[Rfam]
RNA sequence: CAGGCAUGCUGAGCUCCGCAGCGGCGCCUGGGAUUGUUGGUCCCGACACCGUGACUAAACACGGAGCUUGA
Numbered sequence: 001c002a003g004g005c006a007u008g009c010u011g012a013g014c015u016c017c018g019c020a021g022c023g024g025c026g027c028c029u030g031g032g033a034u035u036g037u038u039g040g041u042c043c044c045g046a047c048a049c050c051g052u053g054a055c056u057a058a059a060c061a062c063g064g065a066g067c068u069u070g071a
Base pairs, nucleotide, nucleotide: 011069012068013067014066015065016064017063018062022051023050024049029045030044031043032042
RNA: ybhL leader